[Rfam]
The record is an 84-nucleotide RNA from Bombyx mori, which matches "mir-2807 microRNA precursor family" in Rfam.
RNA sequence: UUAAUUCAGAUUUGUAUGGAGUUGAAAUGUAUUACUACGUUUGCCGCUAGGGGCGCUGUUUUAACUGCAUACAAGUUUGACUUA
Dot-bracket structure: .......(((((((((.(.((((((((((.....((..((.....))..)).....)))))))))).).)))))))))......
Overview:
It scores 71 bits against the family's covariance model. NCBI's taxonomy places the organism under Eukaryota, Ecdysozoa, Eumetabola, Bombycidae, Bombyx. The literature on the family includes a 2010 paper in BMC Genomics by Liu et al., "MicroRNAs of Bombyx mori identified by Solexa sequencing".